[Rfam]
RNA sequence: AUGAUGGUAACGGGAGAGAUUGCCCAAGUCAGCUGACAGGGCGGCGCCGAAGGAGUAAGCCUGAUGCAGGUGAAUCUCUCAGGCAAAAGGACCUUUACCGGACG
Numbered sequence: 001a002u003g004a005u006g007g008u009a010a011c012g013g014g015a016g017a018g019a020u021u022g023c024c025c026a027a028g029u030c031a032g033c034u035g036a037c038a039g040g041g042c043g044g045c046g047c048c049g050a051a052g053g054a055g056u057a058a059g060c061c062u063g064a065u066g067c068a069g070g071u072g073a074a075u076c077u078c079u080c081a082g083g084c085a086a087a088a089g090g091a092c093c094u095u096u097a098c099c100g101g102a103c104g
Stems, first nucleotide, its partner, number of pairs: 006099005012093002020044006046084003049080002053078003059071002
Glycine riboswitch aptamer: a 104-nucleotide RNA from Paenibacillus beijingensis. The literature on the family includes a 2017 paper in MBio by Babina et al., "In Vivo Behavior of the Tandem Glycine Riboswitch in Bacillus subtilis".